[Rfam]
RNA sequence: GUGUUACCAUGAGUUCCCUACAAGCUCUUCACGUGGUACUAUCCAAAUUACUCUCUAUGUGAGCAUUGAGUGCAAUGUGAAGUGUUUGAGGGAACUCUCGGUGAUAC
Numbered sequence: 001g002u003g004u005u006a007c008c009a010u011g012a013g014u015u016c017c018c019u020a021c022a023a024g025c026u027c028u029u030c031a032c033g034u035g036g037u038a039c040u041a042u043c044c045a046a047a048u049u050a051c052u053c054u055c056u057a058u059g060u061g062a063g064c065a066u067u068g069a070g071u072g073c074a075a076u077g078u079g080a081a082g083u084g085u086u087u088g089a090g091g092g093a094a095c096u097c098u099c100g101g102u103g104a105u106a107c
Stems, first nucleotide, its partner, number of pairs: 005103004011097009022087004027082008036073004
Shown here is a 107-nucleotide sequence from Eragrostis curvula, a member of the family "mir-395 microRNA precursor family". A search with the family's covariance model found it, with a score of 69 bits. Its family is annotated with miRNA-mediated post-transcriptional gene silencing and RISC complex in the Gene Ontology. The family has 25 seed sequences and 2,798 matches in Rfam 15.1. A reference for the family is Jones-Rhoades and Bartel (2004), "Computational Identification of Plant MicroRNAs and Their Targets, Including a Stress-Induced miRNA", Mol Cell. Rfam's curators write: mir-395 was identified in both Arabidopsis thaliana and Oryza sativa computationally and was later experimentally verified. mir-395 is thought to target mRNAs coding for ATP sulphurylases.